[Rfam]
RNA: mir-483 microRNA precursor family
Organism: Orycteropus afer
RNA sequence: GGGGGAGGGGACAGGAGGAGAGGAGCACGUGGUCUCAUCAAAGCUCCUCACUCCUCUCCUCCCGUCUCCUCCCCCC
Numbered sequence: 001g002g003g004g005g006a007g008g009g010g011a012c013a014g015g016a017g018g019a020g021a022g023g024a025g026c027a028c029g030u031g032g033u034c035u036c037a038u039c040a041a042a043g044c045u046c047c048u049c050a051c052u053c054c055u056c057u058c059c060u061c062c063c064g065u066c067u068c069c070u071c072c073c074c075c076c
Stems, first nucleotide, its partner, number of pairs: 004072009014062005022056001024055002027052001029051003